[Rfam]
RNA: Small nucleolar RNA SNORA69
Organism: Psophia crepitans
RNA sequence: AAAGCAGGCUGCAAUUACAGUGCUUCAUUCUGUGGGAGUACUGCCAUUUUCCUGCUGAGAUAAACUCUGUUAAUGCUGUCUUCGAUUUCACCUGUACUGUGGUGAAACCAUUUGUACUUAACAUGUACAAGU
Numbered sequence: 001a002a003a004g005c006a007g008g009c010u011g012c013a014a015u016u017a018c019a020g021u022g023c024u025u026c027a028u029u030c031u032g033u034g035g036g037a038g039u040a041c042u043g044c045c046a047u048u049u050u051c052c053u054g055c056u057g058a059g060a061u062a063a064a065c066u067c068u069g070u071u072a073a074u075g076c077u078g079u080c081u082u083c084g085a086u087u088u089c090a091c092c093u094g095u096a097c098u099g100u101g102g103u104g105a106a107a108c109c110a111u112u113u114g115u116a117c118u119u120a121a122c123a124u125g126u127a128c129a130a131g132u
Base pairs, nucleotide, nucleotide: 003056004055005054006053007052008051018043019042020041021040022039023038024037025036026035066125068123069122070121071120072119073118084109086107087106088105089104090103091102092101